Overview:
This 79-nucleotide sequence from Menidia menidia belongs to the Rfam family "Small nucleolar RNA snR60/Z15/Z230/Z193/J17". It is annotated as a C/D-box small nucleolar RNA. A reference for the family is Lowe and Eddy (1999), "A computational screen for methylation guide snoRNAs in yeast", Science. NCBI's taxonomy places the organism under Eukaryota, Eumetazoa, Teleostomi, Atherinopsidae, Menidia. Rfam 15.1 lists 3,592 matches to the family in 1,855 species. It scores 55 bits against the family's covariance model.
RNA sequence: CCGAUGCAGUGAUGAGUGCAUAGUUCAGCUGACAUCUGUGACGAAGAAAAGUGUCUUUCGCUCCUAACUGAGGCAUCGA
Numbered sequence: 001c002c003g004a005u006g007c008a009g010u011g012a013u014g015a016g017u018g019c020a021u022a023g024u025u026c027a028g029c030u031g032a033c034a035u036c037u038g039u040g041a042c043g044a045a046g047a048a049a050a051g052u053g054u055c056u057u058u059c060g061c062u063c064c065u066a067a068c069u070g071a072g073g074c075a076u077c078g079a
Stems, first nucleotide, its partner, number of pairs: 004076004